[Rfam]
About this RNA: The record is a 103-nucleotide RNA from Bacillus sp. FJAT-27231, which matches "Manganese Mn2+ riboswitch aptamer (yybP-ykoY)" in Rfam. Lineage of the source: Bacteria > Bacillota > Bacilli > Bacillaceae > Bacillus. The match comes from Rfam's covariance-model search (48 bits). From the family's description: This RNA was originally discovered in E. coli during a large scale screen and was named SraF. The family was later found to exist upstream of related families of protein genes in many bacteria, including the the yybP and ykoK genes in B. subtilis. The specific functions of these proteins are unknown, but this structured RNA element may be involved in their genetic regulation as a riboswitch.
RNA sequence: ACGAAAGUCAAAGGGGAGUAGCGUUAGGUAUUUUACCUAAAACAAAGUCGUCAAUUCAUGGAUCGUAUCCAUCGGCUUUGUUGACAUGAGUGUAAGCAUGUCC
Numbered sequence: 001a002c003g004a005a006a007g008u009c010a011a012a013g014g015g016g017a018g019u020a021g022c023g024u025u026a027g028g029u030a031u032u033u034u035a036c037c038u039a040a041a042a043c044a045a046a047g048u049c050g051u052c053a054a055u056u057c058a059u060g061g062a063u064c065g066u067a068u069c070c071a072u073c074g075g076c077u078u079u080g081u082u083g084a085c086a087u088g089a090g091u092g093u094a095a096g097c098a099u100g101u102c103c
Stems, first nucleotide, its partner, number of pairs: 025039003041082010058072005
Dot-bracket structure: ........................(((.........))).((((((((((.......(((((.....))))))))))))))).....................